[Rfam]
RNA sequence: AACGACCGGUCGGACCCGCAUGCCUUCAGGCGCGCGAGCCCGGCCCACAAGUGGAGGCUUCGAACUCCCACCUUCCGCCCUCAGGGCGGCGGGUCACCGGUCAGGCGGUGCCGCUCCACGGCGAACCGCCCGAAAGUGCGCCCCGCGGUCACCGCGGCGGUGUUCCGGUAGUUCGAGGAACCCCGCCUGUGAUCGUCCGGGGCAUUUUUG
Numbered sequence: 001a002a003c004g005a006c007c008g009g010u011c012g013g014a015c016c017c018g019c020a021u022g023c024c025u026u027c028a029g030g031c032g033c034g035c036g037a038g039c040c041c042g043g044c045c046c047a048c049a050a051g052u053g054g055a056g057g058c059u060u061c062g063a064a065c066u067c068c069c070a071c072c073u074u075c076c077g078c079c080c081u082c083a084g085g086g087c088g089g090c091g092g093g094u095c096a097c098c099g100g101u102c103a104g105g106c107g108g109u110g111c112c113g114c115u116c117c118a119c120g121g122c123g124a125a126c127c128g129c130c131c132g133a134a135a136g137u138g139c140g141c142c143c144c145g146c147g148g149u150c151a152c153c154g155c156g157g158c159g160g161u162g163u164u165c166c167g168g169u170a171g172u173u174c175g176a177g178g179a180a181c182c183c184c185g186c187c188u189g190u191g192a193u194c195g196u197c198c199g200g201g202g203c204a205u206u207u208u209u210g
Stems, first nucleotide, its partner, number of pairs: 004102006012041002042095005049073001051071004055066002075089006104130005112123004140203006146195003153191003156187005162181005
Dot-bracket structure: ...((((((..((..........................))(((((..(.((((((........)).)))).).((((((...)))))).))))).)))))).(((((...((((....))))..))))).........(((((((((....((((((((.(((((..........))))).))))).))).)))..)))))).......

This 210-nucleotide RNA from Streptomyces sp. SID8111 belongs to the Rfam family "Streptomyces RNA 1601". The literature on the family includes a 2011 paper in RNA Biol by Vockenhuber et al., "Deep sequencing-based identification of small non-coding RNAs in Streptomyces coelicolor". Identified by deep sequencing of transcriptome at the end of exponential growth phase. Rfam classes the family as a small RNA.